The family of this 108-nucleotide RNA sequence is "Methylobacterium-1 RNA". Rfam's curators put it in the seed alignment.

RNA sequence: AAAGUUGGACUGGGAGACAAAAUAUUCCCAACAGGACGAGGGAACGUCACAAUUACCCUCGAGCGUUAAGGACUGUGAUUGUAUCUGCACCUUAUCGUUACCGUAGUU
Numbered sequence: 001a002a003a004g005u006u007g008g009a010c011u012g013g014g015a016g017a018c019a020a021a022a023u024a025u026u027c028c029c030a031a032c033a034g035g036a037c038g039a040g041g042g043a044a045c046g047u048c049a050c051a052a053u054u055a056c057c058c059u060c061g062a063g064c065g066u067u068a069a070g071g072a073c074u075g076u077g078a079u080u081g082u083a084u085c086u087g088c089a090c091c092u093u094a095u096c097g098u099u100a101c102c103g104u105a106g107u108u
Stems, first nucleotide, its partner, number of pairs: 004032005011024002038060005062099004067094005074089004